[Rfam]
RNA sequence: UGUAAAUACCCUCCUUGGGUGUUUCCUCCCUAGACUCAACCGCGCACACAGCGCGGUUUUUUUUGCCGGUG
Numbered sequence: 001u002g003u004a005a006a007u008a009c010c011c012u013c014c015u016u017g018g019g020u021g022u023u024u025c026c027u028c029c030c031u032a033g034a035c036u037c038a039a040c041c042g043c044g045c046a047c048a049c050a051g052c053g054c055g056g057u058u059u060u061u062u063u064u065g066c067c068g069g070u071g
Stems, first nucleotide, its partner, number of pairs: 008020004040056006
RNA: Makes More Granules Regulator RNA (mmgR)